[Rfam]
RNA sequence: CCCUCCGAAGUUUCCCUCAGGAUAGCUGGAGUUGCACAGUUUUAUCAGGUAAAGCGAAUGAUUAGAGGAAUUGGGGACAGAUGUGUCCUUGACCUAUUCUCAAACUUUAAAUGGGUAAUAUGUAGUGGUUGCUUGAUGGAACUUCUAAAAUGAAUGGCAAUAUUAGGUGGGCCAUUUUUGGUAAGCAGAACUGGCGAUGAGGGAUGAACCUAAUGCUGGGUUAAGGUGCUUAAUUACUUGCUCAUUUGAUACCAGAAAGGGUGUUGGUUCAUUUUAACAGCAGGACGGUGGUCAUGGAAGUCGAAAUCCGCUAAGGAGUGUGUAACAACUCACCUGCCGAAUGGACUAGCCCCGAAAAUGGAUGGCGCUCAAGCGGGUGACUGAUACCCAACCACUGUUGCAAACAACAUCAAUGUGUAGGAGGGCAUGGUGGCUUGUGAAACAGCCUUUGGCAAAACCCUAGGUGCAACAGCUUCUAGUGCAGAU
Numbered sequence: 001c002c003c004u005c006c007g008a009a010g011u012u013u014c015c016c017u018c019a020g021g022a023u024a025g026c027u028g029g030a031g032u033u034g035c036a037c038a039g040u041u042u043u044a045u046c047a048g049g050u051a052a053a054g055c056g057a058a059u060g061a062u063u064a065g066a067g068g069a070a071u072u073g074g075g076g077a078c079a080g081a082u083g084u085g086u087c088c089u090u091g092a093c094c095u096a097u098u099c100u101c102a103a104a105c106u107u108u109a110a111a112u113g114g115g116u117a118a119u120a121u122g123u124a125g126u127g128g129u130u131g132c133u134u135g136a137u138g139g140a141a142c143u144u145c146u147a148a149a150a151u152g153a154a155u156g157g158c159a160a161u162a163u164u165a166g167g168u169g170g171g172c173c174a175u176u177u178u179u180g181g182u183a184a185g186c187a188g189a190a191c192u193g194g195c196g197a198u199g200a201g202g203g204a205u206g207a208a209c210c211u212a213a214u215g216c217u218g219g220g221u222u223a224a225g226g227u228g229c230u231u232a233a234u235u236a237c238u239u240g241c242u243c244a245u246u247u248g249a250u251a252c253c254a255g256a257a258a259g260g261g262u263g264u265u266g267g268u269u270c271a272u273u274u275u276a277a278c279a280g281c282a283g284g285a286c287g288g289u290g291g292u293c294a295u296g297g298a299a300g301u302c303g304a305a306a307u308c309c310g311c312u313a314a315g316g317a318g319u320g321u322g323u324a325a326c327a328a329c330u331c332a333c334c335u336g337c338c339g340a341a342u343g344g345a346c347u348a349g350c351c352c353c354g355a356a357a358a359u360g361g362a363u364g365g366c367g368c369u370c371a372a373g374c375g376g377g378u379g380a381c382u383g384a385u386a387c388c389c390a391a392c393c394a395c396u397g398u399u400g401c402a403a404a405c406a407a408c409a410u411c412a413a414u415g416u417g418u419a420g421g422a423g424g425g426c427a428u429g430g431u432g433g434c435u436u437g438u439g440a441a442a443c444a445g446c447c448u449u450u451g452g453c454a455a456a457a458c459c460c461u462a463g464g465u466g467c468a469a470c471a472g473c474u475u476c477u478a479g480u481g482c483a484g485a486u
Stems, first nucleotide, its partner, number of pairs: 001425006011024001013022003027165003031161003040120001042118005052108001053106002059102003064097001066095003071092006078085001123147003127143004171195004176190005200211003215392001217390003221386001225382003234379001236378001239375003259353003263350010280337005286310003292304002311315001316331001320329002393415002396412002399409002426481001428478003432474004437470002445465002451460002
RNA: Eukaryotic large subunit ribosomal RNA, nucleotides 1002 to 1487